[Rfam]
RNA sequence: UGAUGCCUUUGGUAUCUGAUGUCCAAAGUUGUGAAGUAGUUGGACAUUUCGUAAUUCAAGGCAUAAAUUGAAUACUAGAACAGGUUUUGCGACACUGAUUGCUUCUCUCAUAAUAAGCUUUUUGUUACAGUACCCCUGUUUAUAUCU
Number, nucleotide and partner (000 for none) at each position: 001u000002g000003a000004u063005g062006c061007c060008u059009u058010u000011g000012g000013u000014a000015u000016c000017u000018g048019a047020u046021g045022u044023c043024c042025a041026a040027a000028g000029u000030u000031g000032u000033g000034a000035a000036g000037u000038a000039g000040u026041u025042g024043g023044a022045c021046a020047u019048u018049u000050c000051g000052u000053a000054a000055u000056u000057c000058a009059a008060g007061g006062c005063a004064u000065a000066a000067a000068u000069u000070g000071a000072a000073u000074a000075c000076u000077a000078g000079a140080a139081c138082a137083g136084g000085u000086u000087u000088u000089g000090c000091g000092a000093c000094a125095c124096u000097g122098a121099u000100u000101g118102c117103u116104u000105c000106u000107c000108u000109c000110a000111u000112a000113a000114u000115a000116a103117g102118c101119u000120u000121u098122u097123u000124g095125u094126u000127a000128c000129a000130g000131u000132a000133c000134c000135c000136c083137u082138g081139u080140u079141u000142a000143u000144a000145u000146c000147u000